The record is a 124-nucleotide RNA sequence from Eleutherodactylus coqui, which matches "Small nucleolar RNA SNORA65" in Rfam. The base pairs follow the family's consensus structure, which was predicted with RNAalifold. NCBI's taxonomy places the organism under Eukaryota, Vertebrata, Hyloidea, Eleutherodactylinae, Eleutherodactylus. Rfam classes the family as an H/ACA-box small nucleolar RNA. Clan: SNORA65 clan. Gene Ontology terms of the family: RNA processing and nucleolus. A reference for the family is Huttenhofer et al. (2001), "RNomics: an experimental approach that identifies 201 candidates for novel, small, non-messenger RNAs in mouse", EMBO J. About the family: U65 belongs to the H/ACA class of snoRNAs which are thought to guide the sites of modification of uridines to pseudouridines.

RNA sequence: CCCGCCACGAUACCAGUCUCCCGUGUCUGGGUAUAUACCAGUGGUGAGCUUAGAGCGACCUCCUCUUAGGAAGCAGGGCUGCCCUGCUGGUGGUCCGCCCUGCGCCGAGAGAUGGAGCACACGG
Numbered sequence: 001c002c003c004g005c006c007a008c009g010a011u012a013c014c015a016g017u018c019u020c021c022c023g024u025g026u027c028u029g030g031g032u033a034u035a036u037a038c039c040a041g042u043g044g045u046g047a048g049c050u051u052a053g054a055g056c057g058a059c060c061u062c063c064u065c066u067u068a069g070g071a072a073g074c075a076g077g078g079c080u081g082c083c084c085u086g087c088u089g090g091u092g093g094u095c096c097g098c099c100c101u102g103c104g105c106c107g108a109g110a111g112a113u114g115g116a117g118c119a120c121a122c123g124g
Stems, first nucleotide, its partner, number of pairs: 005044004018031003060117004064112004069106002074102006083093002